This 76-nucleotide sequence from Erinaceus europaeus belongs to the Rfam family "Small nucleolar RNA SNORD47". Rfam classes the family as a C/D-box small nucleolar RNA. The family has 20 seed sequences and 755 matches in Rfam 15.1.

[Rfam]
RNA sequence: AACCAGUGAUGCACUGAUUCUGCCAAAUGAGUAAAAUGAUAUCACAUACUAAACCGUUCCAUUUUUCUCUGAGGUU
Numbered sequence: 001a002a003c004c005a006g007u008g009a010u011g012c013a014c015u016g017a018u019u020c021u022g023c024c025a026a027a028u029g030a031g032u033a034a035a036a037u038g039a040u041a042u043c044a045c046a047u048a049c050u051a052a053a054c055c056g057u058u059c060c061a062u063u064u065u066u067c068u069c070u071g072a073g074g075u076u
Stems, first nucleotide, its partner, number of pairs: 001076004
Rfam links the family to the GO terms nucleolus and RNA processing. On this family, see Huttenhofer et al., EMBO J 2001: "RNomics: an experimental approach that identifies 201 candidates for novel, small, non-messenger RNAs in mouse". NCBI's taxonomy places the organism under Eukaryota, Sarcopterygii, Tetrapoda, Amniota, Erinaceus.